[Rfam]
RNA sequence: AAUGAUGGUUUUGUCGCUUUUCAUUAUAAAUCAUAUGGAACUUUUUUUCUGCACAAAAAUAGACACCAUAAUCCUUGCGGUGGAUUUACCCACUACAGAAAUUAUAGAGCC
Numbered sequence: 001a002a003u004g005a006u007g008g009u010u011u012u013g014u015c016g017c018u019u020u021u022c023a024u025u026a027u028a029a030a031u032c033a034u035a036u037g038g039a040a041c042u043u044u045u046u047u048u049c050u051g052c053a054c055a056a057a058a059a060u061a062g063a064c065a066c067c068a069u070a071a072u073c074c075u076u077g078c079g080g081u082g083g084a085u086u087u088a089c090c091c092a093c094u095a096c097a098g099a100a101a102u103u104a105u106a107g108a109g110c111c
Stems, first nucleotide, its partner, number of pairs: 001025005008017002028043002031040001062111001064109001066107001068105005075098001079094005
The family of this 111-nucleotide RNA sequence from Streptococcus iniae is "Streptococcus RNA 266". A reference for the family is Acebo et al. (2012), "Identification of 88 regulatory small RNAs in the TIGR4 strain of the human pathogen Streptococcus pneumoniae", RNA. It is annotated as a small RNA. The pairing is the family consensus, mapped onto this sequence.